This 182-nucleotide RNA sequence belongs to the Rfam family "TUC338". The base pairs follow the family's consensus structure, which was predicted with WAR.
[Rfam]
RNA sequence: UUGACAGCCCUGGAGACUGAAAUCCUCUAUUUAUCCACAGGACAGGUACAGCACAGGCAGCGACAGUGCGAGCUUUCCCCACACCACCCCGUCCAUGUGCCUCAACCCUGACCUGGAGGGACCACCUCUAGAGGUGAGAGGGGAUGUUCAGUCUCCAAGGCUCACUCAAUCCUUCCGCCUCA
Number, nucleotide and partner (000 for none) at each position: 001u000002u168003g167004a166005c000006a000007g161008c160009c000010c000011u157012g156013g155014a154015g153016a152017c151018u150019g149020a148021a147022a000023u000024c143025c142026u141027c140028u139029a000030u138031u137032u136033a135034u134035c133036c000037a000038c110039a109040g108041g000042a000043c000044a000045g000046g000047u000048a102049c000050a000051g100052c099053a098054c097055a096056g000057g000058c000059a000060g000061c000062g088063a000064c000065a000066g084067u000068g000069c000070g000071a000072g000073c000074u000075u000076u000077c000078c000079c000080c000081a000082c000083a000084c066085c000086a000087c000088c062089c000090c000091g000092u000093c000094c000095a000096u055097g054098u053099g052100c051101c000102u048103c000104a000105a000106c000107c000108c040109u039110g038111a000112c000113c131114u130115g129116g128117a127118g126119g125120g000121a000122c000123c000124a000125c119126c118127u117128c116129u115130a114131g113132a000133g035134g034135u033136g032137a031138g030139a028140g027141g026142g025143g024144a000145u000146g000147u021148u020149c019150a018151g017152u016153c015154u014155c013156c012157a011158a000159g000160g008161c007162u000163c000164a000165c000166u004167c003168a002169a000170u000171c000172c000173u000174u000175c000176c000177g000178c000179c000180u000181c000182a000

A reference for the family is Braconi et al. (2011), "Expression and functional role of a transcribed noncoding RNA with an ultraconserved element in hepatocellular carcinoma", Proc Natl Acad Sci U S A.